[Rfam]
RNA sequence: AUUUGAAAAAGGCAAAUCUAUUGAAAAAUAGAGACGCAAAGUCACAGACCUAAGGUGGAUAUCACUAUGGUGGCUGGAUUGCUGAA
Numbered sequence: 001a002u003u004u005g006a007a008a009a010a011g012g013c014a015a016a017u018c019u020a021u022u023g024a025a026a027a028a029u030a031g032a033g034a035c036g037c038a039a040a041g042u043c044a045c046a047g048a049c050c051u052a053a054g055g056u057g058g059a060u061a062u063c064a065c066u067a068u069g070g071u072g073g074c075u076g077g078a079u080u081g082c083u084g085a086a
Base pairs, nucleotide, nucleotide: 012037013036017032018031019030020029021028022027040080041079042078043077045076046075047074048071049070050069055065056064057063058062